[Rfam]
RNA sequence: AGUUCGUACGGGUCGACGGCGCGAGUGACCACCAGGUAGUCGCGCAGCGCGAUGCCGUGCCGGUUUUC
Numbered sequence: 001a002g003u004u005c006g007u008a009c010g011g012g013u014c015g016a017c018g019g020c021g022c023g024a025g026u027g028a029c030c031a032c033c034a035g036g037u038a039g040u041c042g043c044g045c046a047g048c049g050c051g052a053u054g055c056c057g058u059g060c061c062g063g064u065u066u067u068c
Stems, first nucleotide, its partner, number of pairs: 004063003011030003016026002035056004040052005
A member of the RNA family "ASdes TB sRNA" from Mycobacterium bohemicum, 68 nucleotides long. The source organism's lineage runs through Bacteria, Actinomycetes, Mycobacteriales, Mycobacteriaceae and Mycobacterium. A search with the family's covariance model found it, with a score of 79 bits. The family's RNA type in Rfam is small RNA. The family has 26 seed sequences and 1,192 matches in Rfam 15.1.